[Rfam]
RNA: tRNA
RNA sequence: GGUUUUAUAGUGUAAUUGGUUAGCACCCAGGACUUUGAAUCCUGUAAUCUGAGUUCGAGUCUCAGUAGAACCA
Numbered sequence: 001g002g003u004u005u006u007a008u009a010g011u012g013u014a015a016u017u018g019g020u021u022a023g024c025a026c027c028c029a030g031g032a033c034u035u036u037g038a039a040u041c042c043u044g045u046a047a048u049c050u051g052a053g054u055u056c057g058a059g060u061c062u063c064a065g066u067a068g069a070a071c072c073a
Base pairs, nucleotide, nucleotide: 001072002071003070004069005068006067007066010026011025012024013023028044029043030042031041032040049065050064051063052062053061